[Rfam]
RNA sequence: UUUUGUGGGGAUCGCCCUCCGUCAGCGCGUUGCGCCCACGGGGGCAAAACCA
Numbered sequence: 001u002u003u004u005g006u007g008g009g010g011a012u013c014g015c016c017c018u019c020c021g022u023c024a025g026c027g028c029g030u031u032g033c034g035c036c037c038a039c040g041g042g043g044g045c046a047a048a049a050c051c052a
Stems, first nucleotide, its partner, number of pairs: 016044007025035004